[Rfam]
RNA sequence: GUUGACGAAAAAGCGCCGGGCCACGCGGGUGACAGCCGUGAGGGUGACGAGGAGAGGGAUCAUCGAAAGUUUCGGCGGGUGUUCCUCCGGUUGAAACGGGAGCAAAAGCUCCCGGGGCUUAUACCAGCCGCAGAGAAGGGCAAAAAACGGCAGCAAUACCGCAACAGAACCCUUUCAAAGAAAGCC
Numbered sequence: 001g002u003u004g005a006c007g008a009a010a011a012a013g014c015g016c017c018g019g020g021c022c023a024c025g026c027g028g029g030u031g032a033c034a035g036c037c038g039u040g041a042g043g044g045u046g047a048c049g050a051g052g053a054g055a056g057g058g059a060u061c062a063u064c065g066a067a068a069g070u071u072u073c074g075g076c077g078g079g080u081g082u083u084c085c086u087c088c089g090g091u092u093g094a095a096a097c098g099g100g101a102g103c104a105a106a107a108g109c110u111c112c113c114g115g116g117g118c119u120u121a122u123a124c125c126a127g128c129c130g131c132a133g134a135g136a137a138g139g140g141c142a143a144a145a146a147a148c149g150g151c152a153g154c155a156a157u158a159c160c161g162c163a164a165c166a167g168a169a170c171c172c173u174u175u176c177a178a179a180g181a182a183a184g185c186c
Stems, first nucleotide, its partner, number of pairs: 020045003024040003028036001054087005063075004088130006135176006148161003152157001
RNA: glmS glucosamine-6-phosphate activated ribozyme aptamer